[Rfam]
RNA sequence: UGGGUAGUAUCCUUAGGAACUGCACCUUUUUUUAGCUUUAUUUAAUUGAAUAUUGUUCUGCCUUGAUCCAAUAUGGACGGGGACAGAGGG
Numbered sequence: 001u002g003g004g005u006a007g008u009a010u011c012c013u014u015a016g017g018a019a020c021u022g023c024a025c026c027u028u029u030u031u032u033u034a035g036c037u038u039u040a041u042u043u044a045a046u047u048g049a050a051u052a053u054u055g056u057u058c059u060g061c062c063u064u065g066a067u068c069c070a071a072u073a074u075g076g077a078c079g080g081g082g083a084c085a086g087a088g089g090g
Stems, first nucleotide, its partner, number of pairs: 002026002004023005010018002058086003061082005067077003

A member of the RNA family "pan motif" from Bacillus sp. FJAT-49736, 90 nucleotides long. It scores 71 bits against the family's covariance model. The source organism's lineage runs through Bacteria, Bacillati, Bacilli, Caryophanales and Bacillus. The family's consensus secondary structure is taken from published work. Rfam classes the family as a cis-regulatory element.